Overview: The family of this 136-nucleotide RNA from Crocodylus porosus is "Small nucleolar RNA U109". Pairs were carried over by alignment from the consensus structure, which was predicted with WAR. The family's RNA type in Rfam is H/ACA-box small nucleolar RNA. For this family Rfam cites "A novel experimental approach for systematic identification of box H/ACA snoRNAs from eukaryotes" (Gu et al., Nucleic Acids Res, 2005). A search with the family's covariance model found it, with a score of 99 bits.
[Rfam]
RNA sequence: CUGCAUGAUGGAAGCCAUCAUUCUUUUUCUUCAGCGGAGAAUGAAUAUAUUCCUUGCAUGCUACAGAAAAUAAGAAGCUAUCAGGGCCACCAGUCUUGGAGUACAGGCUGAGUGGUAGUAUAUUUCUCUUACAGUA
Numbered sequence: 001c002u003g004c005a006u007g008a009u010g011g012a013a014g015c016c017a018u019c020a021u022u023c024u025u026u027u028u029c030u031u032c033a034g035c036g037g038a039g040a041a042u043g044a045a046u047a048u049a050u051u052c053c054u055u056g057c058a059u060g061c062u063a064c065a066g067a068a069a070a071u072a073a074g075a076a077g078c079u080a081u082c083a084g085g086g087c088c089a090c091c092a093g094u095c096u097u098g099g100a101g102u103a104c105a106g107g108c109u110g111a112g113u114g115g116u117a118g119u120a121u122a123u124u125u126c127u128c129u130u131a132c133a134g135u136a
Base pairs, nucleotide, nucleotide: 003061004060005059006058007057016043017042018041021038022037023036074129076127077126086116087115090112091110092109093108094107095106096105